[Rfam]
This 153-nucleotide RNA from Ketogulonicigenium vulgare belongs to the Rfam family "Ruegeria cis2 sRNA".
For this family Rfam cites "Experimental Identification of Small Non-Coding RNAs in the Model Marine Bacterium Ruegeria pomeroyi DSS-3" (Rivers et al., Front Microbiol, 2016).
By type it is a small RNA.
The organism belongs to Ketogulonicigenium vulgare, within Bacteria.

RNA sequence: GUUCGUAUUGCGCGGCGUGUAGUUCACGAAAACAAAGCCGCGACAUUGGUCGAUGAUAUGGAACAGCGGGUUCCACAGGAACAGCGGCAGCAUCAUCGCGGGCAGUGAAUUCGCGAGGAACAUCUUGCCAGACGCGAUCAUGUUGAUGCGUUG
Number, nucleotide and partner (000 for none) at each position: 001g000002u035003u034004c000005g000006u032007a000008u030009u029010g000011c000012g000013c000014g024015g023016c000017g000018u000019g000020u000021a000022g000023u015024u014025c000026a000027c000028g000029a009030a008031a000032a006033c000034a003035a002036a000037g057038c000039c055040g054041c052042g051043a050044c049045a000046u000047u000048g000049g044050u043051c042052g041053a000054u040055g039056a000057u037058a000059u000060g000061g000062a000063a000064c153065a152066g151067c150068g149069g000070g082071u081072u080073c079074c000075a000076c000077a000078g000079g073080a072081a071082c070083a000084g000085c000086g147087g000088c145089a144090g143091c142092a141093u140094c000095a000096u000097c134098g133099c131100g000101g129102g000103c127104a126105g125106u000107g123108a000109a000110u119111u118112c117113g000114c000115g000116a000117g112118g111119a110120a000121c000122a000123u107124c000125u105126u104127g103128c000129c101130a000131g099132a000133c098134g097135c000136g000137a000138u000139c000140a093141u092142g091143u090144u089145g088146a000147u086148g000149c068150g067151u066152u065153g064